A member of the RNA family "Group II catalytic intron D1-D4-1" from Piscibacillus halophilus, 75 nucleotides long. The pairing is the family consensus, mapped onto this sequence. A reference for the family is Bonen and Vogel (2001), "The ins and outs of group II introns", Trends Genet.
RNA sequence: CAAUCACGGCAGUGAUGCUGUGAUGAAUUGUAAGAAGUCAGCCGAGGCCAUAGUAGUUCCAAAGGAAUGAAGGGC
Numbered sequence: 001c002a003a004u005c006a007c008g009g010c011a012g013u014g015a016u017g018c019u020g021u022g023a024u025g026a027a028u029u030g031u032a033a034g035a036a037g038u039c040a041g042c043c044g045a046g047g048c049c050a051u052a053g054u055a056g057u058u059c060c061a062a063a064g065g066a067a068u069g070a071a072g073g074g075c
Stems, first nucleotide, its partner, number of pairs: 001025002004023008038045002047075003056068005